A member of the RNA family "ZMP/ZTP riboswitch aptamer (pfl RNA motif)" from Lachnoclostridium phytofermentans, 103 nucleotides long. It is one of the family's seed sequences. The source organism's lineage runs through Bacteria, Bacillati, Clostridia, Lachnospiraceae and Lachnoclostridium phytofermentans.
[Rfam]
RNA sequence: AUUACAAUGUACGACUGGCGGAAACUGUAGGAGACUACAGGUGGGGAUAACCCACAGGGAGUACAUUUAAUAACAAUAAGAGCCGACCGCCUGGGCCACCACC
Numbered sequence: 001a002u003u004a005c006a007a008u009g010u011a012c013g014a015c016u017g018g019c020g021g022a023a024a025c026u027g028u029a030g031g032a033g034a035c036u037a038c039a040g041g042u043g044g045g046g047a048u049a050a051c052c053c054a055c056a057g058g059g060a061g062u063a064c065a066u067u068u069a070a071u072a073a074c075a076a077u078a079a080g081a082g083c084c085g086a087c088c089g090c091c092u093g094g095g096c097c098a099c100c101a102c103c
Stems, first nucleotide, its partner, number of pairs: 003070001006067007015058002017091005041055004082096003